[Rfam]
RNA sequence: AGGUCAUUUCAAAGAGGGCUUGUUGGGCUGCAAACCCAAAGCUCUUAACACUGUGACCAAAGAUAGAGGCUCUCCACAGAAUGCCAGAGGUACUUCCUAGUGCUGUGUUCUUCUGAGGAGAUACAGGC
Dot-bracket structure: .((((((......((((((((.(..((.......)).)))))))))......))))))............(((((..((((....(.((.((((....)))))).)....))))..))))).......